[Rfam]
RNA sequence: CAGCUGUAGCCAAAUCAAGUGGCUCAUAGAAGUUAACUGGCCAGUCCUUGUGAGAUCUCUUUCUUUGAUCUCCGUCAACAAUCUGCUUACCGAACUUCUCAUGUUC
Numbered sequence: 001c002a003g004c005u006g007u008a009g010c011c012a013a014a015u016c017a018a019g020u021g022g023c024u025c026a027u028a029g030a031a032g033u034u035a036a037c038u039g040g041c042c043a044g045u046c047c048u049u050g051u052g053a054g055a056u057c058u059c060u061u062u063c064u065u066u067g068a069u070c071u072c073c074g075u076c077a078a079c080a081a082u083c084u085g086c087u088u089a090c091c092g093a094a095c096u097u098c099u100c101a102u103g104u105u106c
Stems, first nucleotide, its partner, number of pairs: 028099007039087003044082002048078003
RNA: Small nucleolar RNA snoR109